A member of the RNA family "mir-192/215 microRNA precursor family" from Polypterus senegalus, 76 nucleotides long. Rfam 15.1 lists 810 matches to the family in 628 species.
RNA sequence: GCAGAACUAUGACCUAUGAAUUGACAGCCAGUAGAAAACCAAGCCUGCCUGUCAGUUUUGUAGGCCACAGAUUUGC
Numbered sequence: 001g002c003a004g005a006a007c008u009a010u011g012a013c014c015u016a017u018g019a020a021u022u023g024a025c026a027g028c029c030a031g032u033a034g035a036a037a038a039c040c041a042a043g044c045c046u047g048c049c050u051g052u053c054a055g056u057u058u059u060g061u062a063g064g065c066c067a068c069a070g071a072u073u074u075g076c
Base pairs, nucleotide, nucleotide: 001076002075003074004073005072007070008069010067011066013064014063015062016061018058019057020056021055022054023053024052025051026050027049029047030046031045
The match comes from Rfam's covariance-model search (71 bits). Pairs were carried over by alignment from the consensus structure, which was predicted with PFOLD.